RNA: Fluoride riboswitch aptamer (crcB RNA motif)
Organism: Nitrobacter hamburgensis
RNA sequence: CUGGAAACAGGGAAUGGUGUCUCCCUUUCACCGCCGACUGGCUGAUGACUCCUGCUGACUG
Numbered sequence: 001c002u003g004g005a006a007a008c009a010g011g012g013a014a015u016g017g018u019g020u021c022u023c024c025c026u027u028u029c030a031c032c033g034c035c036g037a038c039u040g041g042c043u044g045a046u047g048a049c050u051c052c053u054g055c056u057g058a059c060u061g
Base pairs, nucleotide, nucleotide: 010025011024012023013022016052017051019049020048021047033042034041035040